[Rfam]
RNA sequence: CGUCAACGACAGGGGAGCGCUCCGGCGCUGAGAGUGCGGGCGACCGCAGACCCUCACACCUGAUCCGGUUCGCACCGGCGUAGGGAGUCGAGUUCUCAGGGAA
Numbered sequence: 001c002g003u004c005a006a007c008g009a010c011a012g013g014g015g016a017g018c019g020c021u022c023c024g025g026c027g028c029u030g031a032g033a034g035u036g037c038g039g040g041c042g043a044c045c046g047c048a049g050a051c052c053c054u055c056a057c058a059c060c061u062g063a064u065c066c067g068g069u070u071c072g073c074a075c076c077g078g079c080g081u082a083g084g085g086a087g088u089c090g091a092g093u094u095c096u097c098a099g100g101g102a103a
Stems, first nucleotide, its partner, number of pairs: 007090004011054004017028004035048005059084004065078004
Description: TPP riboswitch aptamer (THI element): a 103-nucleotide sequence from Knoellia locipacati. The source organism's lineage runs through Bacteria, Actinomycetota, Actinomycetes, Intrasporangiaceae and Knoellia. Pairs were carried over by alignment from the consensus structure, which is taken from published work. Vitamin B(1) in its active form thiamin pyrophosphate (TPP) is an essential coenzyme that is synthesised by coupling of pyrimidine and thiazole moieties in bacteria.